[Rfam]
RNA sequence: GCCCCAAGUCGCACGUGCCCUUGGGCGUCCCCCGGUCCUCGAAUGCGAGGGUUGCCGGGACGGUACCUGGACUUAACACAUCCAGUCGUUUCCGCUGCUGGCGGAUUCGAGGACGCCCUCAAAGCAACGACGGUCCGGGCCUUU
Numbered sequence: 001g002c003c004c005c006a007a008g009u010c011g012c013a014c015g016u017g018c019c020c021u022u023g024g025g026c027g028u029c030c031c032c033c034g035g036u037c038c039u040c041g042a043a044u045g046c047g048a049g050g051g052u053u054g055c056c057g058g059g060a061c062g063g064u065a066c067c068u069g070g071a072c073u074u075a076a077c078a079c080a081u082c083c084a085g086u087c088g089u090u091u092c093c094g095c096u097g098c099u100g101g102c103g104g105a106u107u108c109g110a111g112g113a114c115g116c117c118c119u120c121a122a123a124g125c126a127a128c129g130a131c132g133g134u135c136c137g138g139g140c141c142u143u144u
Base pairs, nucleotide, nucleotide: 001140002139003138004137008131009130010129011128016126017125018124023118024117025116026115027114028113029112030111031059032058033057034056035055037050038049039048040047041046067085068084069083070082071081086110087109088108092104093103094102095101096100
The record is a 144-nucleotide RNA sequence from Aurantimonas sp. Leaf443, which matches "Alphaproteobacterial sRNA ar45" in Rfam. The organism belongs to Aurantimonas, within Bacteria. The pairing is the family consensus, mapped onto this sequence. A search with the family's covariance model found it, with a score of 127 bits.